The record is a 74-nucleotide sequence from Danionella cerebrum, which matches "mir-193 microRNA precursor family" in Rfam. A search with the family's covariance model found it, with a score of 76 bits. Pairs were carried over by alignment from the consensus structure, which was predicted with RNAalifold.
Nucleotides: 074
Stems, first nucleotide, its partner, number of pairs: 003072006010065004015060005021054004026049002029046002
Number, partner (000 for none) and nucleotide at each position: 001000g002000u003072c004071a005070g006069g007068a008067g009000c010065u011064g012063g013062g014000u015060c016059u017058u018057u019056g020000c021054g022053g023052g024051c025000a026049a027048g028000g029046u030045g031000a032000g033000u034000u035000u036000u037000c038000u039000g040000u041000u042000c043000u044000a045030c046029a047000a048027c049026u050000g051024g052023c053022c054021u055000a056019c057018a058017a059016a060015g061000u062013c063012c064011c065010a066000g067008u068007u069006u070005u071004u072003g073000g074000c
The organism belongs to Danionella, within Eukaryota.